[Rfam]
RNA sequence: AUGAAGAAUUUGAGAGAGAUUGUAAUGUUGAUACAACGCCGAAGGGGCUUAAAAACUCUCAGGCAAAGGGAUCAAAUUUGGACG
Numbered sequence: 001a002u003g004a005a006g007a008a009u010u011u012g013a014g015a016g017a018g019a020u021u022g023u024a025a026u027g028u029u030g031a032u033a034c035a036a037c038g039c040c041g042a043a044g045g046g047g048c049u050u051a052a053a054a055a056c057u058c059u060c061a062g063g064c065a066a067a068g069g070g071a072u073c074a075a076a077u078u079u080g081g082a083c084g
Base pairs, nucleotide, nucleotide: 006079007078008077009076010075011074012073013072020036021035022034023033038064039063040062041060042059045058046057047056

The record is an 84-nucleotide RNA from Clostridium bornimense, which matches "Glycine riboswitch aptamer" in Rfam.
About the family: This family represents the bacterial glycine riboswitch.
NCBI's taxonomy places the organism under Bacteria, Bacillati, Bacillota, Clostridia, Clostridium.
The pairing is the family consensus, mapped onto this sequence.